[Rfam]
RNA sequence: AUUGUUGAACUUGGCAAGAUGUCGGAAUAGCUGAAUGUGUCCUUUUUCAGGGAAAUUCAAAACCACGGCUAUGCCUCAUCUAGUCAAUUGCAGCGAUU
Numbered sequence: 001a002u003u004g005u006u007g008a009a010c011u012u013g014g015c016a017a018g019a020u021g022u023c024g025g026a027a028u029a030g031c032u033g034a035a036u037g038u039g040u041c042c043u044u045u046u047u048c049a050g051g052g053a054a055a056u057u058c059a060a061a062a063c064c065a066c067g068g069c070u071a072u073g074c075c076u077c078a079u080c081u082a083g084u085c086a087a088u089u090g091c092a093g094c095g096a097u098u
Stems, first nucleotide, its partner, number of pairs: 005093003009089001011087005017081005024075002027072007
RNA: mir-31 microRNA precursor family
Organism: Ceratitis capitata